Source information
A member of the RNA family "Bacterial large subunit ribosomal RNA" from Aquirufa nivalisilvae, 246 nucleotides of a longer RNA.
[Rfam]
RNA sequence: GGAAUAUUGACAGGUUCUGACUUUAGUACGAGAGGACCGAGUUGGACUGACCGCUGGUAUAUCAGUUGUUCUGCCAAGGGCAUAGCUGAGUAGCCACGUCGGGACCAGAUAAGCGCUGAAAGCAUCUAAGUGCGAAACUGACCUGAAGAUGAGUAUUCCAUGAAGGGUCCGUGUAGACGACACGGUCGAUAGGCUACAGAUGUAAAGGCAGUAAUGUCAAAGUCGAGUAGUACUAAUUACCCGAAA
Numbered sequence: 001g002g003a004a005u006a007u008u009g010a011c012a013g014g015u016u017c018u019g020a021c022u023u024u025a026g027u028a029c030g031a032g033a034g035g036a037c038c039g040a041g042u043u044g045g046a047c048u049g050a051c052c053g054c055u056g057g058u059a060u061a062u063c064a065g066u067u068g069u070u071c072u073g074c075c076a077a078g079g080g081c082a083u084a085g086c087u088g089a090g091u092a093g094c095c096a097c098g099u100c101g102g103g104a105c106c107a108g109a110u111a112a113g114c115g116c117u118g119a120a121a122g123c124a125u126c127u128a129a130g131u132g133c134g135a136a137a138c139u140g141a142c143c144u145g146a147a148g149a150u151g152a153g154u155a156u157u158c159c160a161u162g163a164a165g166g167g168u169c170c171g172u173g174u175a176g177a178c179g180a181c182a183c184g185g186u187c188g189a190u191a192g193g194c195u196a197c198a199g200a201u202g203u204a205a206a207g208g209c210a211g212u213a214a215u216g217u218c219a220a221a222g223u224c225g226a227g228u229a230g231u232a233c234u235a236a237u238u239a240c241c242c243g244a245a246a
Base pairs, nucleotide, nucleotide: 001159002158003157004156005155006154007153008152011145012144013143014142017045018044019043020042021041022040023039047102048101049100050099051098055096056095057094062089063088064087065086066085067082068081069080070079071078072077106140107139108138113133114132115131116130117129165242166241167240168239169185170184171183172182173181190235191234192233193231194230195229196228197227199224200223203219207218208217209216210215
On this family, see Cannone et al., BMC Bioinformatics 2002: "The comparative RNA web (CRW) site: an online database of comparative sequence and structure information for ribosomal, intron, and other RNAs". Its Rfam clan is "LSU clan". NCBI's taxonomy places the organism under Bacteria, Pseudomonadati, Cytophagia, Flectobacillaceae, Aquirufa. Pairs were carried over by alignment from the consensus structure, which is taken from published work.